[Rfam]
RNA sequence: CUGUGCACAGCCUGCCUCCCCUGCUGCAGCAGCCCUUCAUGUGCUGUGCUAAUCCACAGCAGAAAACCUCUUUUAAUGAGGAGUGAUAUACUUAUGAACUCUCUGGAGUCAUAAUUAGAGCAAACUAAUUGAAGUUGUGUUUUGACACACUUUCCAAAUUCACGGGUACUGCGUGACACAUUCCCAACAGUGCUGCUGCACGCCUGGUGACAGCACAAUCAUUAGGCUAAUGACACUUAUUUGCAUUCUGAUCAUGCCAGCACGGCCGUUCAGGGCUGCCUCAACCAGCAUCUCCACAAAAGUUUCCACUGCAAGAUAUUAACAGUAAUUAUUAGCAGCUCAGUGAAUCCCUGAUGUUAAGGC
Numbered sequence: 001c002u003g004u005g006c007a008c009a010g011c012c013u014g015c016c017u018c019c020c021c022u023g024c025u026g027c028a029g030c031a032g033c034c035c036u037u038c039a040u041g042u043g044c045u046g047u048g049c050u051a052a053u054c055c056a057c058a059g060c061a062g063a064a065a066a067c068c069u070c071u072u073u074u075a076a077u078g079a080g081g082a083g084u085g086a087u088a089u090a091c092u093u094a095u096g097a098a099c100u101c102u103c104u105g106g107a108g109u110c111a112u113a114a115u116u117a118g119a120g121c122a123a124a125c126u127a128a129u130u131g132a133a134g135u136u137g138u139g140u141u142u143u144g145a146c147a148c149a150c151u152u153u154c155c156a157a158a159u160u161c162a163c164g165g166g167u168a169c170u171g172c173g174u175g176a177c178a179c180a181u182u183c184c185c186a187a188c189a190g191u192g193c194u195g196c197u198g199c200a201c202g203c204c205u206g207g208u209g210a211c212a213g214c215a216c217a218a219u220c221a222u223u224a225g226g227c228u229a230a231u232g233a234c235a236c237u238u239a240u241u242u243g244c245a246u247u248c249u250g251a252u253c254a255u256g257c258c259a260g261c262a263c264g265g266c267c268g269u270u271c272a273g274g275g276c277u278g279c280c281u282c283a284a285c286c287a288g289c290a291u292c293u294c295c296a297c298a299a300a301a302g303u304u305u306c307c308a309c310u311g312c313a314a315g316a317u318a319u320u321a322a323c324a325g326u327a328a329u330u331a332u333u334a335g336c337a338g339c340u341c342a343g344u345g346a347a348u349c350c351c352u353g354a355u356g357u358u359a360a361g362g363c
Base pairs, nucleotide, nucleotide: 047356048355050353051352053347055345056344057343061340062339068083069082070081071080072079073078088332089331090330092328093327094326095325099108100107101106118294119293120292131153132152133151134150136149137148138147139146140145165267166266194209195208196207197206198205213257214256215255226244227243229241230240231239232238
The family of this 363-nucleotide RNA sequence from Erithacus rubecula is "ncRNA Repressor of NFAT (nuclear factor of activated T cells)". The base pairs follow the family's consensus structure. By type it is a non-coding RNA gene. The family has 24 seed sequences and 522 matches in Rfam 15.1. Taxonomically the source falls in Erithacus (Eukaryota, Dipnotetrapodomorpha, Amniota, Saurischia). A reference for the family is Willingham et al. (2005), "A strategy for probing the function of noncoding RNAs finds a repressor of NFAT", Science.